[Rfam]
RNA sequence: GCUUUAUCGAGAGUGGUGGAGGGAAAGGCCCUGCGAAGCCACAGCAACCGGUUCUUCGGAGCGUCAGGUGCUAAUUCCUGCCGUAACAGGCAAAGAUGAGGU
Numbered sequence: 001g002c003u004u005u006a007u008c009g010a011g012a013g014u015g016g017u018g019g020a021g022g023g024a025a026a027g028g029c030c031c032u033g034c035g036a037a038g039c040c041a042c043a044g045c046a047a048c049c050g051g052u053u054c055u056u057c058g059g060a061g062c063g064u065c066a067g068g069u070g071c072u073a074a075u076u077c078c079u080g081c082c083g084u085a086a087c088a089g090g091c092a093a094a095g096a097u098g099a100g101g102u
Stems, first nucleotide, its partner, number of pairs: 001102008013042005021031003026079003043072004048068002050064001053061001076094001082090001

Description: A member of the RNA family "SAM riboswitch aptamer (S box leader)" from Geobacter sp. SVR, 102 nucleotides long. Pairs were carried over by alignment from the consensus structure, which is taken from published work. It scores 72 bits against the family's covariance model.